[Rfam]
RNA sequence: UUGAAGGCAAACAUCGUUUUGGACGGGGGUUCGAUUCCCCCCACCUCCACCAAAUGUCGAAUUGAGGAAGCAUGCACAAUCCGGCAUUUGAAGGGGGUGACCUGGCUUCGACAAGGCGAUCAGUACCCGGAGACACACCACGUCAGGCGACUGACGUAAACAGCGCAAAAACCAAUUGCAAAUGAACCGCAAUUUUUUGCUUACGGUACCUGA
Numbered sequence: 001u002u003g004a005a006g007g008c009a010a011a012c013a014u015c016g017u018u019u020u021g022g023a024c025g026g027g028g029g030u031u032c033g034a035u036u037c038c039c040c041c042c043a044c045c046u047c048c049a050c051c052a053a054a055u056g057u058c059g060a061a062u063u064g065a066g067g068a069a070g071c072a073u074g075c076a077c078a079a080u081c082c083g084g085c086a087u088u089u090g091a092a093g094g095g096g097g098u099g100a101c102c103u104g105g106c107u108u109c110g111a112c113a114a115g116g117c118g119a120u121c122a123g124u125a126c127c128c129g130g131a132g133a134c135a136c137a138c139c140a141c142g143u144c145a146g147g148c149g150a151c152u153g154a155c156g157u158a159a160a161c162a163g164c165g166c167a168a169a170a171a172c173c174a175a176u177u178g179c180a181a182a183u184g185a186a187c188c189g190c191a192a193u194u195u196u197u198u199g200c201u202u203a204c205g206g207u208a209c210c211u212g213a
Stems, first nucleotide, its partner, number of pairs: 006127001015118003019114003025041005042099007141156004

The record is a 213-nucleotide RNA sequence from Herbaspirillum huttiense, which matches "permuted transfer-messenger RNA" in Rfam. By type it is a non-coding RNA gene.